RNA sequence: CCUGCCGAAGUUUCCCUCAGGAUAGCAGAAGCUCAAAACAGUUUUAUGAGGUAAAGCGAAUGAUUAGAUGUCUCGGGGCAAAAUUAGCCUUAGCAUAUUCUCAAACUUUAAAUAUGUAAGAAGAAGAUGUUACUUUAUUGAACAUUUUCACGAAUGUAGAGCUUUUAGUGGGCCAUUUUUGGUAAGCAGAACUGGCGAUGCGGGAUGAACCGAACGUAAAGUUAAAGUGCCAGAAUUCACGCUAAUCAGACACCACAAAAGGUGUUAGUUCAUCUAGACAGCCGGACGGUGGCCAUGGAAGUCGGAAUCCGCUAAGGAGUGUGUAAUAACUCACCGGCCGAAUGAACUAGCCCUGAAAAUGGAUGGCGCUAAGCGUGAUACUUAUACUUUACCACUUUUUCCUUCAAAAAGUGAGUAGGCAGGCGUGGAGGUGGUGUAGAAGCUUGGUUGUGAAAUCGAGUGGAACCGCCUCUAGUGCAGAU
Dot-bracket structure: ((((((....(.(((....))).)..(((((((........(((((((.....(((....(((..(.(((..(.((((.........)))).)))).)..)))..)).).....))))))).(((((((((.........)))))))))..........))))))).....((((.(((((.....))))).))))....(((......)))...(((((.(...(((......(.(..(((.................(((.((((((((((.......(((((.(((...((.........))...)))(...)(...((......)).).)))))...)))))))))))))..................)))..)))))...).)))))(((((((.......)))))))....))))))(.((((((((((......((...(((....)))...))...))))))))))..).....
This 482-nucleotide part of an RNA from Metschnikowia cubensis belongs to the Rfam family "Eukaryotic large subunit ribosomal RNA". Its family is annotated with ribosome and structural constituent of ribosome in the Gene Ontology. Rfam's curators put it in the seed alignment.